[Rfam]
RNA sequence: UACCAAAUGAUCAAGUCAGGAUUUUCUCAUUUGAAUGAAGAGAAUAAUUUUAUUAAAAUUUUCUUUUCUAUAUUCACACAAUAUGGUUAGUCUGUUACAUCUUUGGAAGAGUAAUAUCCCCUCGUAUUUUUGAAUUCGUUCUGAAUUUGUAUAAAUACAAAUUUAUAUUUCCGUUUUGGAAGUAUUCCCUUGGGUGAGUGGAAUCUUAUGAGUUGAAAAUUUUCUCCAAUUUUUGGGUCUAUAGGAAUUUUCGUAGUAAAGAGUCCAACAAUU
Numbered sequence: 001u002a003c004c005a006a007a008u009g010a011u012c013a014a015g016u017c018a019g020g021a022u023u024u025u026c027u028c029a030u031u032u033g034a035a036u037g038a039a040g041a042g043a044a045u046a047a048u049u050u051u052a053u054u055a056a057a058a059u060u061u062u063c064u065u066u067u068c069u070a071u072a073u074u075c076a077c078a079c080a081a082u083a084u085g086g087u088u089a090g091u092c093u094g095u096u097a098c099a100u101c102u103u104u105g106g107a108a109g110a111g112u113a114a115u116a117u118c119c120c121c122u123c124g125u126a127u128u129u130u131u132g133a134a135u136u137c138g139u140u141c142u143g144a145a146u147u148u149g150u151a152u153a154a155a156u157a158c159a160a161a162u163u164u165a166u167a168u169u170u171c172c173g174u175u176u177u178g179g180a181a182g183u184a185u186u187c188c189c190u191u192g193g194g195u196g197a198g199u200g201g202a203a204u205c206u207u208a209u210g211a212g213u214u215g216a217a218a219a220u221u222u223u224c225u226c227c228a229a230u231u232u233u234u235g236g237g238u239c240u241a242u243a244g245g246a247a248u249u250u251u252c253g254u255a256g257u258a259a260a261g262a263g264u265c266c267a268a269c270a271a272u273u
Stems, first nucleotide, its partner, number of pairs: 003106005019093005026086001117197002119194002122160001124158006131149007167183007199267004204262004214253005221246003226236003
Description:
Shown here is a 273-nucleotide RNA from [Candida] boidinii, a member of the family "Small nucleolar RNA snR191". Pairs were carried over by alignment from the consensus structure, which was predicted with WAR. The family is grouped with related families in Rfam's "SNORA74 clan". A reference for the family is Badis et al. (2003), "A snoRNA that guides the two most conserved pseudouridine modifications within rRNA confers a growth advantage in yeast", RNA. It is annotated as an H/ACA-box small nucleolar RNA.